[Rfam]
RNA sequence: ACACAUACAGAAGGAGCUUUUGUUACCAGCACUCGGGGCUCUUUUUCGCUGUUCUCGACUCUCUGGCGACCGUGUCUACGAAAGCGCUGGAUGCUCAGUGGAUGUUGGCCUAGGAACCCGAAUUUGAUGGCCAACAGCUAUUUUCUGGAGGAUGAAGCUUGUCAGUCGGAAGCAGUGUCGGGACCCAUCUCGAGUUGGAGUCAGAGUUUCGUACUUGUCUGACACUGCGGAUGGCAAGACGACGUGGCAAUCCCUCAGCCUUGCGUUGGACAUCAGACUGGGAGCUCAAAUUAUUGGAUUUCAAGGGCAGGCCGUUUGGAAGAGGUAGCCCUGGUUGUCCUCGUGCCAGAAAUGGUAGGAGGACACCCCC
Number, nucleotide and partner (000 for none) at each position: 001a000002c000003a000004c000005a000006u000007a000008c000009a000010g000011a000012a000013g000014g000015a000016g000017c000018u000019u000020u000021u000022g000023u000024u000025a000026c000027c000028a000029g000030c000031a000032c000033u000034c000035g000036g000037g000038g000039c000040u000041c000042u000043u000044u000045u000046u000047c000048g000049c000050u000051g000052u000053u000054c000055u000056c000057g000058a000059c000060u000061c000062u000063c000064u000065g000066g000067c000068g000069a000070c000071c000072g000073u000074g000075u000076c000077u000078a000079c000080g000081a000082a000083a000084g000085c000086g000087c000088u000089g000090g000091a000092u000093g000094c000095u000096c000097a000098g000099u000100g000101g000102a000103u000104g000105u000106u000107g000108g000109c000110c000111u000112a000113g000114g000115a000116a000117c000118c000119c000120g000121a000122a000123u000124u000125u000126g000127a000128u000129g000130g000131c000132c000133a000134a000135c000136a000137g000138c000139u000140a000141u000142u000143u000144u000145c000146u000147g000148g000149a000150g000151g000152a000153u000154g000155a000156a000157g000158c000159u000160u000161g000162u000163c000164a000165g000166u000167c000168g000169g000170a000171a000172g000173c000174a000175g000176u000177g000178u000179c000180g000181g000182g202183a201184c200185c198186c197187a196188u000189c000190u000191c000192g000193a000194g000195u000196u187197g186198g185199a000200g184201u183202c182203a000204g216205a215206g214207u213208u000209u000210c000211g000212u000213a207214c206215u205216u204217g000218u000219c000220u000221g000222a000223c000224a000225c000226u000227g000228c000229g000230g000231a000232u000233g000234g000235c000236a000237a000238g000239a000240c000241g000242a000243c000244g000245u000246g000247g000248c000249a000250a000251u000252c000253c000254c000255u000256c000257a000258g000259c000260c000261u000262u000263g000264c000265g000266u000267u000268g000269g000270a000271c000272a000273u000274c000275a000276g000277a000278c000279u000280g000281g000282g000283a000284g000285c000286u000287c000288a000289a000290a000291u000292u000293a000294u000295u000296g000297g000298a000299u000300u000301u000302c000303a000304a000305g000306g000307g000308c000309a000310g000311g000312c000313c000314g000315u000316u000317u000318g000319g000320a000321a000322g000323a000324g000325g000326u000327a000328g000329c000330c000331c000332u000333g000334g000335u000336u000337g000338u000339c000340c000341u000342c000343g000344u000345g000346c000347c000348a000349g000350a000351a000352a000353u000354g000355g000356u000357a000358g000359g000360a000361g000362g000363a000364c000365a000366c000367c000368c000369c000370c000
The family of this 370-nucleotide part of an RNA from Tolypocladium ophioglossoides is "Ascomycota telomerase RNA".
Rfam classes the family as a non-coding RNA gene.
Its Rfam clan is "Telomerase clan".
A reference for the family is Qi et al. (2013), "The common ancestral core of vertebrate and fungal telomerase RNAs", Nucleic Acids Res.